Small nucleolar RNA SNORA61: a 134-nucleotide sequence from Phyllostomus discolor. Its family is annotated with RNA processing and nucleolus in the Gene Ontology. From the family's description: ACA61 is a member of the H/ACA class of snoRNA that guide the sites of modification of uridines to pseudouridines.
RNA sequence: ACCCUUCAAAUUCCCUUUUCCAUUGGAUCAGAACGCCAGUCUUGGUGGUCAUUAAAGAAAGAAAAGUAAUACUGAAGCUGGCCUCACACUGCUUGUAUUAUGUUCUAUAGCAUAUGGGCUAGUUUCAAACAAGG
Numbered sequence: 001a002c003c004c005u006u007c008a009a010a011u012u013c014c015c016u017u018u019u020c021c022a023u024u025g026g027a028u029c030a031g032a033a034c035g036c037c038a039g040u041c042u043u044g045g046u047g048g049u050c051a052u053u054a055a056a057g058a059a060a061g062a063a064a065a066g067u068a069a070u071a072c073u074g075a076a077g078c079u080g081g082c083c084u085c086a087c088a089c090u091g092c093u094u095g096u097a098u099u100a101u102g103u104u105c106u107a108u109a110g111c112a113u114a115u116g117g118g119c120u121a122g123u124u125u126c127a128a129a130c131a132a133g134g
Stems, first nucleotide, its partner, number of pairs: 003061001005059003020048005026041003078122007094112003